[Rfam]
RNA sequence: AUGACAGAAGAGAGUGAGCACACAAAGCCAAAUUGUACCGAAGUGACUUGUUGUAUGAUUGUUUUGGGUGCUCACUGCUCUAUCUGUCAU
Numbered sequence: 001a002u003g004a005c006a007g008a009a010g011a012g013a014g015u016g017a018g019c020a021c022a023c024a025a026a027g028c029c030a031a032a033u034u035g036u037a038c039c040g041a042a043g044u045g046a047c048u049u050g051u052u053g054u055a056u057g058a059u060u061g062u063u064u065u066g067g068g069u070g071c072u073c074a075c076u077g078c079u080c081u082a083u084c085u086g087u088c089a090u
Base pairs, nucleotide, nucleotide: 001090002089003088004087005086006085007084008083010080011079012078013076014075015074016073017072018071019070020069021068023066024065025064

Overview:
A member of the RNA family "mir-156 microRNA precursor family" from Helianthus annuus, 90 nucleotides long. Rfam's curators write: This family represents the plant microRNA (miRNA) precursor mir-156. The organism belongs to Helianthus, within Eukaryota. Rfam links the family to the GO terms miRNA-mediated post-transcriptional gene silencing and RISC complex. A reference for the family is Reinhart et al. (2002), "MicroRNAs in plants", Genes Dev. Pairs were carried over by alignment from the consensus structure, which was predicted with PFOLD. The match comes from Rfam's covariance-model search (66 bits).